[Rfam]
RNA sequence: UGAUACCAGGGUCUAAAGGUCUAAAUCCACAUGAGCUUGCUCAUCGGUGAAUGAAAGACCUUGAGCCCCGCCCCAAUAUGAGCAUAAAAGUGGGAUGCUCAUCCCACGAUAUGCGAAUAUGGGGCCCAGAAUUGUGAAAGUGCAACGCACGAAACAAUUCGCGGGUAUCA
Numbered sequence: 001u002g003a004u005a006c007c008a009g010g011g012u013c014u015a016a017a018g019g020u021c022u023a024a025a026u027c028c029a030c031a032u033g034a035g036c037u038u039g040c041u042c043a044u045c046g047g048u049g050a051a052u053g054a055a056a057g058a059c060c061u062u063g064a065g066c067c068c069c070g071c072c073c074c075a076a077u078a079u080g081a082g083c084a085u086a087a088a089a090g091u092g093g094g095a096u097g098c099u100c101a102u103c104c105c106a107c108g109a110u111a112u113g114c115g116a117a118u119a120u121g122g123g124g125c126c127c128a129g130a131a132u133u134g135u136g137a138a139a140g141u142g143c144a145a146c147g148c149a150c151g152a153a154a155c156a157a158u159u160c161g162c163g164g165g166u167a168u169c170a
Stems, first nucleotide, its partner, number of pairs: 001170007010068002013065001016062007026051001028049003031044005072124003076120004082114004090107007129160007140150004
Notes:
This 170-nucleotide RNA from Oscillospiraceae bacterium Marseille-Q3528 belongs to the Rfam family "Clostridiales-1 RNA". Lineage of the source: Bacteria > Bacillati > Clostridia > Eubacteriales > Oscillospiraceae. By type it is a small RNA.